[Rfam]
RNA sequence: UGGAAGUGCACCUAGGGUUCCGUCCGGUGAGCCGGAGACUGGUCCAAGUGGUGCAGGCACCUGCGGGUGUUACACCGUAGAGGGAUAAAAACCCGGGCGGA
Numbered sequence: 001u002g003g004a005a006g007u008g009c010a011c012c013u014a015g016g017g018u019u020c021c022g023u024c025c026g027g028u029g030a031g032c033c034g035g036a037g038a039c040u041g042g043u044c045c046a047a048g049u050g051g052u053g054c055a056g057g058c059a060c061c062u063g064c065g066g067g068u069g070u071u072a073c074a075c076c077g078u079a080g081a082g083g084g085a086u087a088a089a090a091a092c093c094c095g096g097g098c099g100g101a
Stems, first nucleotide, its partner, number of pairs: 007055006015045002020042002022039001023036005056071006073096001075099001082094003

Background
Guanidine-I riboswitch aptamer: a 101-nucleotide RNA from Hydrogenispora ethanolica. A search with the family's covariance model found it, with a score of 66 bits. The family has 100 seed sequences and 1,509 matches in Rfam 15.1. Taxonomically the source falls in Hydrogenispora (Bacteria, Bacillati, Bacillota).